[Rfam]
RNA: t44 RNA
Organism: Pseudomonas sp. 8AS
Nucleotides: 086
Stems, first nucleotide, its partner, number of pairs: 022076008034067008047058004
Number, partner (000 for none) and nucleotide at each position: 001000c002000u003000c004000g005000u006000g007000a008000a009000g010000c011000u012000u013000u014000a015000a016000u017000c018000c019000g020000c021000a022076c023075a024074c025073g026072u027071a028070u029069c030000g031000a032000c033000a034067c035066g036065u037064u038063a039062u040061c041060c042000u043000g044000g045000g046000u047058g048057c049056c050055u051000g052000c053000a054000a055050g056049g057048g058047u059000u060041g061040g062039a063038u064037a065036g066035c067034g068000g069029g070028a071027u072026g073025c074024g075023u076022g077000g078000a079000g080000g081000c082000c083000u084000a085000a086000c